[Rfam]
RNA sequence: CGCCCUACCUCGGGGUGCCAGAUGGCUGAGACGCGAAUGCGGACCCGUUGAACCUGAACCGGUUAGAACCGGCGGAGGGAAGGUAGUGAGAUCAUCC
Numbered sequence: 001c002g003c004c005c006u007a008c009c010u011c012g013g014g015g016u017g018c019c020a021g022a023u024g025g026c027u028g029a030g031a032c033g034c035g036a037a038u039g040c041g042g043a044c045c046c047g048u049u050g051a052a053c054c055u056g057a058a059c060c061g062g063u064u065a066g067a068a069c070c071g072g073c074g075g076a077g078g079g080a081a082g083g084u085a086g087u088g089a090g091a092u093c094a095u096c097c
Stems, first nucleotide, its partner, number of pairs: 006085005011047004016041001017026003033040002053078003059072004